[Rfam]
RNA sequence: GCUUUCUGAUUUGCGUGGAGGCUGAAAAACUCGGAUAGCUUUGUGUUGUCAUCAGCUUCAUCUCUUUGUUCCUUGAGAUGGGAGUUAAAUAACAGCACGAAAUUG
Numbered sequence: 001g002c003u004u005u006c007u008g009a010u011u012u013g014c015g016u017g018g019a020g021g022c023u024g025a026a027a028a029a030c031u032c033g034g035a036u037a038g039c040u041u042u043g044u045g046u047u048g049u050c051a052u053c054a055g056c057u058u059c060a061u062c063u064c065u066u067u068g069u070u071c072c073u074u075g076a077g078a079u080g081g082g083a084g085u086u087a088a089a090u091a092a093c094a095g096c097a098c099g100a101a102a103u104u105g
Stems, first nucleotide, its partner, number of pairs: 042099007054086006061078004